[Rfam]
RNA: Bacterial RNase P class A
RNA sequence: GCUUCUCACCGCGCUGCCGCGGUACAUGUUUCAUGUAACGAGGAAAGUCCGGACAGCAUAGGGCAAUACACCGGCUAACGGCCGGGGGGCGGGCAACCGUUCACAGAAAGUGCCACAGAAAAUAACUGCCCGUUUCGCUUUGGCGAAACAGGUGAGGGUGAAAACGUAGGGUAAGAGCCUACGGUAGCCGGCAGUAAUGCCGGUUGGGGGUAAACCUUGUAUGCUGAAAUGCCAUGUAAACCGGUGGCUGAGGGCGGCUCGCCCGAUGGUUCCGAAAGGGCCAACGCCGGAGGGUAGGCAGAUAGAUCGCAAUAGUAAUGUUGCGGCCAGAUAAAUGGUAGCGGCCUGUUAUGGGUAAAACCAAAACAGGAACAGAAUCCGGCUUACAGGUGAGAAGUUUAU
Numbered sequence: 001g002c003u004u005c006u007c008a009c010c011g012c013g014c015u016g017c018c019g020c021g022g023u024a025c026a027u028g029u030u031u032c033a034u035g036u037a038a039c040g041a042g043g044a045a046a047g048u049c050c051g052g053a054c055a056g057c058a059u060a061g062g063g064c065a066a067u068a069c070a071c072c073g074g075c076u077a078a079c080g081g082c083c084g085g086g087g088g089g090c091g092g093g094c095a096a097c098c099g100u101u102c103a104c105a106g107a108a109a110g111u112g113c114c115a116c117a118g119a120a121a122a123u124a125a126c127u128g129c130c131c132g133u134u135u136c137g138c139u140u141u142g143g144c145g146a147a148a149c150a151g152g153u154g155a156g157g158g159u160g161a162a163a164a165c166g167u168a169g170g171g172u173a174a175g176a177g178c179c180u181a182c183g184g185u186a187g188c189c190g191g192c193a194g195u196a197a198u199g200c201c202g203g204u205u206g207g208g209g210g211u212a213a214a215c216c217u218u219g220u221a222u223g224c225u226g227a228a229a230u231g232c233c234a235u236g237u238a239a240a241c242c243g244g245u246g247g248c249u250g251a252g253g254g255c256g257g258c259u260c261g262c263c264c265g266a267u268g269g270u271u272c273c274g275a276a277a278g279g280g281c282c283a284a285c286g287c288c289g290g291a292g293g294g295u296a297g298g299c300a301g302a303u304a305g306a307u308c309g310c311a312a313u314a315g316u317a318a319u320g321u322u323g324c325g326g327c328c329a330g331a332u333a334a335a336u337g338g339u340a341g342c343g344g345c346c347u348g349u350u351a352u353g354g355g356u357a358a359a360a361c362c363a364a365a366a367c368a369g370g371a372a373c374a375g376a377a378u379c380c381g382g383c384u385u386a387c388a389g390g391u392g393a394g395a396a397g398u399u400u401a402u
Stems, first nucleotide, its partner, number of pairs: 001398010011387001012343007020040002023037006045385003049382005054226004064274001066222005071085005086104001087102006105217002110215002112211003126157002128153003132149007165183006185207001186205008230300004241290005268282005307326008